Shown here is a 133-nucleotide sequence from Camelus ferus, a member of the family "Small nucleolar RNA SNORA71".
Rfam classes the family as an H/ACA-box small nucleolar RNA.
Pairs were carried over by alignment from the consensus structure, which was predicted with PFOLD.
A search with the family's covariance model found it, with a score of 138 bits.
The organism belongs to Camelus, within Eukaryota.

RNA sequence: CUCUGCAUUUGAAAGUGAACAUGGGCUGCCCGUGCCCUGGUCAUUGAUAGUGCAGGCAGAGGAAUUGCUGAAAGCGUUUCCCCGUGUUUGAAGGGUCCAUCCUGUCCCUUCCAAACCCUGGAGCUUUCCCACU
Numbered sequence: 001c002u003c004u005g006c007a008u009u010u011g012a013a014a015g016u017g018a019a020c021a022u023g024g025g026c027u028g029c030c031c032g033u034g035c036c037c038u039g040g041u042c043a044u045u046g047a048u049a050g051u052g053c054a055g056g057c058a059g060a061g062g063a064a065u066u067g068c069u070g071a072a073a074g075c076g077u078u079u080c081c082c083c084g085u086g087u088u089u090g091a092a093g094g095g096u097c098c099a100u101c102c103u104g105u106c107c108c109u110u111c112c113a114a115a116c117c118c119u120g121g122a123g124c125u126u127u128c129c130c131a132c133u
Base pairs, nucleotide, nucleotide: 002056003055004054005053006052007051008050009049014045015044016043017042018041020039021038023037024036025035026034067130070128071127072126073125074124075123086116087115088114089113090112091110092109093108094107095106